[Rfam]
RNA sequence: ACACAAGAAGGGAGGUGGUCCGAGAUUUUGAGUGACUUAUGGACAUGUGAGGUGGCUGCUAGCUAGCAGCACCAGGCUGAGGAUUCACCUGCGAGCGCUGGCGAAUUCCAAGCAGCCACCCGGCCCCCGAGCCCUUGGUUUGUCCAACCAGGAACUAUGGCUCGGGGGCCGCCCAUU
Numbered sequence: 001a002c003a004c005a006a007g008a009a010g011g012g013a014g015g016u017g018g019u020c021c022g023a024g025a026u027u028u029u030g031a032g033u034g035a036c037u038u039a040u041g042g043a044c045a046u047g048u049g050a051g052g053u054g055g056c057u058g059c060u061a062g063c064u065a066g067c068a069g070c071a072c073c074a075g076g077c078u079g080a081g082g083a084u085u086c087a088c089c090u091g092c093g094a095g096c097g098c099u100g101g102c103g104a105a106u107u108c109c110a111a112g113c114a115g116c117c118a119c120c121c122g123g124c125c126c127c128c129g130a131g132c133c134c135u136u137g138g139u140u141u142g143u144c145c146a147a148c149c150a151g152g153a154a155c156u157a158u159g160g161c162u163c164g165g166g167g168g169c170c171g172c173c174c175a176u177u
Stems, first nucleotide, its partner, number of pairs: 014060006062102006069096002072093001074090003121171013134152006